[Rfam]
RNA sequence: AAUUUUGUUUGUAGAAACAAAAGGAAAAGCUCUAUUCUACACCCGAUAAGUACCAAUACGCAAUGGUA
Numbered sequence: 001a002a003u004u005u006u007g008u009u010u011g012u013a014g015a016a017a018c019a020a021a022a023g024g025a026a027a028a029g030c031u032c033u034a035u036u037c038u039a040c041a042c043c044c045g046a047u048a049a050g051u052a053c054c055a056a057u058a059c060g061c062a063a064u065g066g067u068a
Base pairs, nucleotide, nucleotide: 003022004021006019007018008017009016010015043066044065050059051058052057
A member of the RNA family "Plastid-clpP 5UTR RNA" from Ziziphus jujuba, 68 nucleotides long. Plastid clpP is a non-coding RNA (ncRNA) recognised in plastids. It was found in the prime untranslated region (5UTR) of a protease complex subunit (clpP) in plastids, suggesting a posible cis-regulatory function. Rfam 15.1 lists 2,105 matches to the family in 526 species.